Shown here is a 72-nucleotide RNA from Drosophila rhopaloa, a member of the family "mir-6 microRNA precursor family". It scores 74 bits against the family's covariance model.
RNA sequence: AAGUAGAGGGAAUAGUUGCUGUGCUGUAAGUUACUAACUAUACCUAUAUCACAGUGGCUGUUCUUUUUGUAC
Numbered sequence: 001a002a003g004u005a006g007a008g009g010g011a012a013u014a015g016u017u018g019c020u021g022u023g024c025u026g027u028a029a030g031u032u033a034c035u036a037a038c039u040a041u042a043c044c045u046a047u048a049u050c051a052c053a054g055u056g057g058c059u060g061u062u063c064u065u066u067u068u069g070u071a072c
Stems, first nucleotide, its partner, number of pairs: 004069002007066007016057008025048004

The literature on the family includes a 2001 paper in Cell by Ambros, "microRNAs: tiny regulators with great potential". The family has 36 seed sequences and 58 matches in Rfam 15.1. The family is grouped with related families in Rfam's "mir-6 clan". Pairs were carried over by alignment from the consensus structure, which was predicted with PFOLD.